[Rfam]
RNA: Bacterial RNase P class A
RNA sequence: GAAAGCAGGAGAGGCAAUCGCAAAAAAGUUUUAUUUCGUUUUGAAAAUAAAACUUUUUUGAGGAAAGUCCGGGCUCCCAUAUGGUCAGGCUUGCUGGGUAAUUCCCAGUGCGGGCAACCGUGAGGAUAGUGCCACAGAAACAUACCGCCUAAUACUUUCUUAGUAUGGCAAGGGUGCAAGGGUGCGGUAAGAGCGCACCAGCAACAUUGAGAAGUGUUGGCUAGGUAAACCCCGGCUGGGAGCAAGGCUUAGUGGAUUUAUGACCAUUAGAAAAUCUACUUAUGAGCGCCGCUUGAGGCUGUGAAGUAAUUCCAGUCCUAGAUAGAUGAUUGCCCAUCUUAAUUACGAUGAACAGAACCCGGCUUAUGACCUGCUUUCUAAU
Numbered sequence: 001g002a003a004a005g006c007a008g009g010a011g012a013g014g015c016a017a018u019c020g021c022a023a024a025a026a027a028g029u030u031u032u033a034u035u036u037c038g039u040u041u042u043g044a045a046a047a048u049a050a051a052a053c054u055u056u057u058u059u060g061a062g063g064a065a066a067g068u069c070c071g072g073g074c075u076c077c078c079a080u081a082u083g084g085u086c087a088g089g090c091u092u093g094c095u096g097g098g099u100a101a102u103u104c105c106c107a108g109u110g111c112g113g114g115c116a117a118c119c120g121u122g123a124g125g126a127u128a129g130u131g132c133c134a135c136a137g138a139a140a141c142a143u144a145c146c147g148c149c150u151a152a153u154a155c156u157u158u159c160u161u162a163g164u165a166u167g168g169c170a171a172g173g174g175u176g177c178a179a180g181g182g183u184g185c186g187g188u189a190a191g192a193g194c195g196c197a198c199c200a201g202c203a204a205c206a207u208u209g210a211g212a213a214g215u216g217u218u219g220g221c222u223a224g225g226u227a228a229a230c231c232c233c234g235g236c237u238g239g240g241a242g243c244a245a246g247g248c249u250u251a252g253u254g255g256a257u258u259u260a261u262g263a264c265c266a267u268u269a270g271a272a273a274a275u276c277u278a279c280u281u282a283u284g285a286g287c288g289c290c291g292c293u294u295g296a297g298g299c300u301g302u303g304a305a306g307u308a309a310u311u312c313c314a315g316u317c318c319u320a321g322a323u324a325g326a327u328g329a330u331u332g333c334c335c336a337u338c339u340u341a342a343u344u345a346c347g348a349u350g351a352a353c354a355g356a357a358c359c360c361g362g363c364u365u366a367u368g369a370c371c372u373g374c375u376u377u378c379u380a381a382u
Stems, first nucleotide, its partner, number of pairs: 001378009011367001013334007021060016065365003069362005074242004083275001085273001088237003092234002094108005109123001110121004124232002129230002131226003145173002147169003152166005181199006201221001202219007246290003266280001268278003297317005303312003